[Rfam]
This 338-nucleotide part of an RNA from Apibacter mensalis belongs to the Rfam family "Bacterial large subunit ribosomal RNA". The literature on the family includes a 2002 paper in BMC Bioinformatics by Cannone et al., "The comparative RNA web (CRW) site: an online database of comparative sequence and structure information for ribosomal, intron, and other RNAs". Lineage of the source: Bacteria > Bacteroidota > Flavobacteriia > Weeksellaceae > Apibacter. A search with the family's covariance model found it, with a score of 2691 bits. The base pairs follow the family's consensus structure, which is taken from published work.

Nucleotides: 338
Stems, first nucleotide, its partner, number of pairs: 001338004009333008018324003035059005044049001060079006068073001080084001092317007099309002103117003120155008128145001132141003158304004163234003168231002170227005177222003183216002187212006195203002235253006254258001264291001274290006
Number, partner (000 for none) and nucleotide at each position: 001338c002337g003336a004335g005000u006000g007000a008000a009333u010332c011331a012330u013329g014328g015327u016326u017000a018324a019323g020322g021000a022000a023000c024000u025000a026000g027000g028000c029000a030000a031000a032000a033000u034000a035059g036058a037057c038056c039055u040000g041000u042000a043000a044049c045000u046000u047000c048000g049044g050000g051000a052000g053000a054000a055039a056038g057037g058036u059035c060079g061078c062077u063076c064075c065074c066000a067000a068073u069000a070000a071000a072000a073068a074065g075064g076063g077062a078061g079060c080084c081000g082000c083000a084080g085000u086000g087000a088000a089000a090000a091000g092317g093316c094315c095314c096313a097312g098311g099309c100308g101000a102000c103117u104116g105115u106000u107000u108000a109000u110000c111000a112000a113000a114000a115105a116104c117103a118000c119000a120155g121154g122153a123152c124151u125150c126149u127148g128145c129000a130000a131000a132141a133140u134139c135000g136000c137000a138000a139134g140133a141132u142000g143000a144000a145128g146000u147000a148127u149126a150125g151124g152123g153122u154121c155120u156000g157000a158304c159303a160302c161301c162000u163234g164233c165232c166000c167000g168231g169230u170227g171226c172225u173224g174223g175000a176000a177222g178221g179220u180000u181000a182000a183216g184215g185000a186000a187212g188211g189210a190209g191208g192207u193000a194000a195203g196202c197000g198000u199000c200000a201000a202196g203195c204000g205000a206000a207192g208191c209190c210189u211188u212187u213000g214000a215184c216183u217000g218000a219000a220179g221178c222177c223174c224173c225172a226171g227170u228000a229000a230169a231168c232165g233164g234163c235253g236252g237251c238250c239249g240248u241000a242000a243000c244000u245000a246000u247000a248240a249239c250238g251237g252236u253235c254258c255000u256000a257000a258254g259000g260000u261000a262000g263000c264291g265000a266000a267000a268000u269000u270000c271000c272000u273000u274290g275289u276288c277287g278286g279285g280000u281000a282000a283000g284000u285279u286278c287277c288276g289275a290274c291264c292000u293000g294000c295000a296000c297000g298000a299000a300000u301161g302160g303159u304158g305000u306000a307000a308100c309099g310000a311098u312097c313096u314095g315094g316093g317092c318000a319000c320000u321000g322020u323019c324018u325000c326016a327015a328014c329013c330012a331011u332010g333009a334000g335004c336003u337002c338001g